The record is a 169-nucleotide RNA from Domibacillus epiphyticus, which matches "glmS glucosamine-6-phosphate activated ribozyme aptamer" in Rfam.

RNA sequence: GUUUUACUAAAAGCGCCUGAACUGAGCGGAACGACAACACGCUUAGUUGACGAGGAGGAGGUUUAUCGACGAUUCGGCGGAUGCCUCCCGGUUGCGGUACACAACUGUCAUGUUCAUCCUUAAAACAGCGGGGCAACCCGAUGGACAAAGGGAGUGAAUUUGUACCAAA
Numbered sequence: 001g002u003u004u005u006a007c008u009a010a011a012a013g014c015g016c017c018u019g020a021a022c023u024g025a026g027c028g029g030a031a032c033g034a035c036a037a038c039a040c041g042c043u044u045a046g047u048u049g050a051c052g053a054g055g056a057g058g059a060g061g062u063u064u065a066u067c068g069a070c071g072a073u074u075c076g077g078c079g080g081a082u083g084c085c086u087c088c089c090g091g092u093u094g095c096g097g098u099a100c101a102c103a104a105c106u107g108u109c110a111u112g113u114u115c116a117u118c119c120u121u122a123a124a125a126c127a128g129c130g131g132g133g134c135a136a137c138c139c140g141a142u143g144g145a146c147a148a149a150g151g152g153a154g155u156g157a158a159u160u161u162g163u164a165c166c167a168a169a
Stems, first nucleotide, its partner, number of pairs: 020048008057088005066077004089107006112159005117153002126143002129140004
Rfam describes the family as follows. This entry contains a glucosamine-6-phosphate activated ribozyme that is found in the mRNA for GlmS. GlmS is an enzyme that uses fructose-6-phosphate and glutamine to generate glucosamine-6-phosphate. The ribozyme catalyses self cleavage of the glmS mRNA that is thought to regulate GlmS activity. The base pairs follow the family's consensus structure, which is taken from published work. Rfam classes the family as a riboswitch.